[Rfam]
RNA sequence: GUCAGCACCCCGCUCUAAAGAGCAGGGGCCGAAGCGCCUCUCUCUUAGAUAGCUGACCUGCCUAAGUCUUGUUGGACUACGUUUUUAGAGUUAUGACACCUACAAAUGCUUGACCGUUUGUAGCUAGUCGCGUAUUUUUGUUAAACAUUCCGACUCGGGGUAAGAAAGUGCAACUAGCCGAACAAGCUUGAAAAACAUUGGCUCAGAAAAAAUUAC
Numbered sequence: 001g002u003c004a005g006c007a008c009c010c011c012g013c014u015c016u017a018a019a020g021a022g023c024a025g026g027g028g029c030c031g032a033a034g035c036g037c038c039u040c041u042c043u044c045u046u047a048g049a050u051a052g053c054u055g056a057c058c059u060g061c062c063u064a065a066g067u068c069u070u071g072u073u074g075g076a077c078u079a080c081g082u083u084u085u086u087a088g089a090g091u092u093a094u095g096a097c098a099c100c101u102a103c104a105a106a107u108g109c110u111u112g113a114c115c116g117u118u119u120g121u122a123g124c125u126a127g128u129c130g131c132g133u134a135u136u137u138u139u140g141u142u143a144a145a146c147a148u149u150c151c152g153a154c155u156c157g158g159g160g161u162a163a164g165a166a167a168g169u170g171c172a173a174c175u176a177g178c179c180g181a182a183c184a185a186g187c188u189u190g191a192a193a194a195a196c197a198u199u200g201g202c203u204c205a206g207a208a209a210a211a212a213u214u215a216c
Base pairs, nucleotide, nucleotide: 001057002056003055004054005053006052007050009028010027011025014021015020060202061201062200064198065078066077067076068075069074081196082195083194084193085192086191088189089188090187091186096128097127100123101122102121103120104119105118106117107116110210111209114206130178131177135176138173139172140171141170145169146168148166149165150164153161154160

Shown here is a 216-nucleotide RNA from Lyngbya sp. PCC 8106, a member of the family "HNH endonuclease-associated RNA and ORF (HEARO) RNA". The family's consensus secondary structure is taken from published work. Lineage of the source: Bacteria > Cyanophyceae > Oscillatoriophycideae > Microcoleaceae > Lyngbya.